[Rfam]
RNA sequence: AAUCGAAAAGGCAAACUUCGGGAAACCGGAGGACGCAAAGCCAAGGGCCUUCGCCGCAUCUAUUGUGGUUGGCAGCCGGUUGCCGCAU
Numbered sequence: 001a002a003u004c005g006a007a008a009a010g011g012c013a014a015a016c017u018u019c020g021g022g023a024a025a026c027c028g029g030a031g032g033a034c035g036c037a038a039a040g041c042c043a044a045g046g047g048c049c050u051u052c053g054c055c056g057c058a059u060c061u062a063u064u065g066u067g068g069u070u071g072g073c074a075g076c077c078g079g080u081u082g083c084c085g086c087a088u
Stems, first nucleotide, its partner, number of pairs: 001088001003085001011036002016031006034075001039081004045077002047073003
The family of this 88-nucleotide RNA from Paenibacillus phyllosphaerae is "c-di-GMP-I-GGC riboswitch aptamer". NCBI's taxonomy places the organism under Bacteria, Bacillota, Bacilli, Caryophanales, Paenibacillus. The family's consensus secondary structure is taken from published work. Its Rfam clan is "c-di-GMP_I riboswitch clan".